Rfam assigns this 93-nucleotide RNA from Mesocricetus auratus to the family "mir-217 microRNA precursor family". A search with the family's covariance model found it, with a score of 102 bits. A reference for the family is Lim et al. (2003), "Vertebrate microRNA genes", Science.
Nucleotides: 093
Stems, first nucleotide, its partner, number of pairs: 023073005029067003033063005039058003
Number, partner (000 for none) and nucleotide at each position: 001000c002000a003000g004000u005000u006000u007000u008000u009000g010000a011000u012000g013000u014000u015000g016000u017000a018000g019000a020000u021000a022000c023073u024072g025071c026070a027069u028000c029067a030066g031065g032000a033063a034062c035061u036060g037059a038000c039058u040057g041056g042000a043000u044000a045000a046000g047000a048000c049000a050000a051000a052000g053000u054000c055000a056041c057040c058039a059037u060036c061035a062034g063033u064000g065031c066030c067029u068000c069027a070026u071025g072024c073023a074000u075000u076000g077000c078000c079000u080000u081000c082000a083000g084000c085000a086000u087000c088000u089000a090000a091000a092000a093000c
Rfam links the family to the GO terms RISC complex and miRNA-mediated post-transcriptional gene silencing.